Purine riboswitch aptamer: a 100-nucleotide sequence from Psychrobacillus insolitus. Rfam links the family to the GO term purine nucleobase biosynthetic process.

RNA sequence: AGUAAGAAACGAGAAUAUCCCCAUAUAUACUAAAGAAUUGGCUUUAGUGUCUCUACCAAGUCACCUUAAUGACAGGACUAUGCGGGAAAGCAACUUUUGG
Numbered sequence: 001a002g003u004a005a006g007a008a009a010c011g012a013g014a015a016u017a018u019c020c021c022c023a024u025a026u027a028u029a030c031u032a033a034a035g036a037a038u039u040g041g042c043u044u045u046a047g048u049g050u051c052u053c054u055a056c057c058a059a060g061u062c063a064c065c066u067u068a069a070u071g072a073c074a075g076g077a078c079u080a081u082g083c084g085g086g087a088a089a090g091c092a093a094c095u096u097u098u099g100g
Base pairs, nucleotide, nucleotide: 018086019085020084022082023081024080025079029048030047031046032045033044034043035042057076060073061072062071063070